[Rfam]
RNA sequence: AACAAAGAUUGAGGUUGCAGAAAACAAUAGUAACUAGUUGGAAGCGAAAAAGCGUUAUUGAAAACUAGUGAAAGGGUGAUCUGCCGAAAUGGUCAUUUGCUUUUUCAAAUGGCUGUUGGGGCUUGGCUGAAUAAGUCAGGAACUGUCGUGAUGAUAAUCAUCACGGGGCGCUAUCGACUAA
Numbered sequence: 001a002a003c004a005a006a007g008a009u010u011g012a013g014g015u016u017g018c019a020g021a022a023a024a025c026a027a028u029a030g031u032a033a034c035u036a037g038u039u040g041g042a043a044g045c046g047a048a049a050a051a052g053c054g055u056u057a058u059u060g061a062a063a064a065c066u067a068g069u070g071a072a073a074g075g076g077u078g079a080u081c082u083g084c085c086g087a088a089a090u091g092g093u094c095a096u097u098u099g100c101u102u103u104u105u106c107a108a109a110u111g112g113c114u115g116u117u118g119g120g121g122c123u124u125g126g127c128u129g130a131a132u133a134a135g136u137c138a139g140g141a142a143c144u145g146u147c148g149u150g151a152u153g154a155u156a157a158u159c160a161u162c163a164c165g166g167g168g169c170g171c172u173a174u175c176g177a178c179u180a181a
Stems, first nucleotide, its partner, number of pairs: 007175003011171001017084005024077002033069007088117012118144002122140007146166007
A member of the RNA family "Lysine riboswitch aptamer" from Loigolactobacillus rennini, 181 nucleotides long. The family's consensus secondary structure is taken from published work. Lineage of the source: Bacteria > Bacilli > Lactobacillales > Lactobacillaceae > Loigolactobacillus rennini.